[Rfam]
Annotation
The record is a 106-nucleotide RNA sequence from Mytilus edulis, which matches "Vault RNA" in Rfam. The source organism's lineage runs through Eukaryota, Protostomia, Pteriomorphia, Mytilinae and Mytilus. The family's consensus secondary structure is taken from published work.

RNA sequence: AUGUUGGCGUAGUCGAGUGGUUACUUCGUUUGUAUAAUGUAACUAUGACAUUUGUUAACUGGCGGGUUCGAACCCCGUAGAACCACUGACGCUUUCCAACAUUGAA
Numbered sequence: 001a002u003g004u005u006g007g008c009g010u011a012g013u014c015g016a017g018u019g020g021u022u023a024c025u026u027c028g029u030u031u032g033u034a035u036a037a038u039g040u041a042a043c044u045a046u047g048a049c050a051u052u053u054g055u056u057a058a059c060u061g062g063c064g065g066g067u068u069c070g071a072a073c074c075c076c077g078u079a080g081a082a083c084c085a086c087u088g089a090c091g092c093u094u095u096c097c098a099a100c101a102u103u104g105a106a
Stems, first nucleotide, its partner, number of pairs: 002101006012090004017086004025072004